[Rfam]
Rfam assigns this 103-nucleotide sequence from Streptomyces sp. ADI97-07 to the family "NLPC-P60 RNA". Lineage of the source: Bacteria > Actinomycetota > Kitasatosporales > Streptomycetaceae > Streptomyces. The match comes from Rfam's covariance-model search (70 bits). It is annotated as a cis-regulatory element.
RNA sequence: CGGUCCUUGCUUCGCCCGGCACCGAGUGACCGGAUGGACGGGAUCCGAGCACUUGUGGGGUAGUCCGAUUUAAGGAUGACACCCCGCCCCCGUCACCGGAGGU
Numbered sequence: 001c002g003g004u005c006c007u008u009g010c011u012u013c014g015c016c017c018g019g020c021a022c023c024g025a026g027u028g029a030c031c032g033g034a035u036g037g038a039c040g041g042g043a044u045c046c047g048a049g050c051a052c053u054u055g056u057g058g059g060g061u062a063g064u065c066c067g068a069u070u071u072a073a074g075g076a077u078g079a080c081a082c083c084c085c086g087c088c089c090c091c092g093u094c095a096c097c098g099g100a101g102g103u
Stems, first nucleotide, its partner, number of pairs: 025053004031047005057090005063084001